[Rfam]
RNA: CyVA-1 RNA
Organism: Oxynema aestuarii
RNA sequence: GUACCAUCACGGGAUUUGUACUGUUUGGCCCGUGUUCGAGUCGCCAUCCGAAGGAGAACGACGUCAGGAUGCGCGAGUGGUAC
Numbered sequence: 001g002u003a004c005c006a007u008c009a010c011g012g013g014a015u016u017u018g019u020a021c022u023g024u025u026u027g028g029c030c031c032g033u034g035u036u037c038g039a040g041u042c043g044c045c046a047u048c049c050g051a052a053g054g055a056g057a058a059c060g061a062c063g064u065c066a067g068g069a070u071g072c073g074c075g076a077g078u079g080g081u082a083c
Base pairs, nucleotide, nucleotide: 001083002082003081004080005079006078009033010032011031012030042075043074044073045071046070047069048068049067